[Rfam]
RNA sequence: ACAAUGAUACUUCCGUCCGCAAGGGCGGCCCGGCGAGAACCGCGGGGAGGCUGGAACCCUAUGG
Numbered sequence: 001a002c003a004a005u006g007a008u009a010c011u012u013c014c015g016u017c018c019g020c021a022a023g024g025g026c027g028g029c030c031c032g033g034c035g036a037g038a039a040c041c042g043c044g045g046g047g048a049g050g051c052u053g054g055a056a057c058c059c060u061a062u063g064g
Stems, first nucleotide, its partner, number of pairs: 012061001013028006029047003033043003048060003
RNA: pemK RNA